[Rfam]
RNA: Bacteriophage Diversity-Generating Retroelement RNA
RNA sequence: GUUCCUUUGUUCUUAGGAGGCAUUGGGCGGGUACUUUACAAGGUGCCAGCCUUUGCAUCCAGGUUCGGCAAACUCAUGUCCGAGUGGUGGCAAUGGCAGGGAGUAGCUCAUCGAAACCUGCUGUCACU
Numbered sequence: 001g002u003u004c005c006u007u008u009g010u011u012c013u014u015a016g017g018a019g020g021c022a023u024u025g026g027g028c029g030g031g032u033a034c035u036u037u038a039c040a041a042g043g044u045g046c047c048a049g050c051c052u053u054u055g056c057a058u059c060c061a062g063g064u065u066c067g068g069c070a071a072a073c074u075c076a077u078g079u080c081c082g083a084g085u086g087g088u089g090g091c092a093a094u095g096g097c098a099g100g101g102a103g104u105a106g107c108u109c110a111u112c113g114a115a116a117c118c119u120g121c122u123g124u125c126a127c128u
Base pairs, nucleotide, nucleotide: 001028002027004026005025008022009021010020012019013018062069084128087127088126089125090124091123097120098119099118100117106112
Dot-bracket structure: ((.((..(((.((....)))))..)))).................................(......)..............(..(((((.....((((.....(.....)....))))..))))))